[Rfam]
RNA sequence: UGGAGAAACAUCAUUGAGUGCAGCGUUGAUGAAAUCCUAAAUACUAGCAACUAUAUUGUGCUUAUCUUAAAGAGAUAUGUCAAAUAUUAGUAUAUGUUUAGUUUCGUUGACGCUGCACUUAAUCAUGUUUUUU
Numbered sequence: 001u002g003g004a005g006a007a008a009c010a011u012c013a014u015u016g017a018g019u020g021c022a023g024c025g026u027u028g029a030u031g032a033a034a035u036c037c038u039a040a041a042u043a044c045u046a047g048c049a050a051c052u053a054u055a056u057u058g059u060g061c062u063u064a065u066c067u068u069a070a071a072g073a074g075a076u077a078u079g080u081c082a083a084a085u086a087u088u089a090g091u092a093u094a095u096g097u098u099u100a101g102u103u104u105c106g107u108u109g110a111c112g113c114u115g116c117a118c119u120u121a122a123u124c125a126u127g128u129u130u131u132u133u
Base pairs, nucleotide, nucleotide: 006130007129008128009127010126011125013123014122015121016120017119018118019117020116021115022114023113024112025111026110027109028108030106031105032104033103034102035101
RNA: MIR397 microRNA precursor family